[Rfam]
RNA: Group II catalytic intron D1-D4-5
RNA sequence: CAGGUGGAUGACGGGGUAACGCCCUGAAACGCCUGCCCUCGGUGGGCGUGCAUCGGCUGCAAAGCCGGUGUACGAAGCCCCACGACAACGGCUGAGAGCAACCGUAGCCGCCGCCAACGGCAGCCGAAAGCGGUCUGGAGGCAGACUGUGUUGCCUAUAGGCCAAGGGUCUACAAA
Numbered sequence: 001c002a003g004g005u006g007g008a009u010g011a012c013g014g015g016g017u018a019a020c021g022c023c024c025u026g027a028a029a030c031g032c033c034u035g036c037c038c039u040c041g042g043u044g045g046g047c048g049u050g051c052a053u054c055g056g057c058u059g060c061a062a063a064g065c066c067g068g069u070g071u072a073c074g075a076a077g078c079c080c081c082a083c084g085a086c087a088a089c090g091g092c093u094g095a096g097a098g099c100a101a102c103c104g105u106a107g108c109c110g111c112c113g114c115c116a117a118c119g120g121c122a123g124c125c126g127a128a129a130g131c132g133g134u135c136u137g138g139a140g141g142c143a144g145a146c147u148g149u150g151u152u153g154c155c156u157a158u159a160g161g162c163c164a165a166g167g168g169u170c171u172a173c174a175a176a
Stems, first nucleotide, its partner, number of pairs: 001035006013025004036168004043082004047074012090163004098154005103126002110121002130149008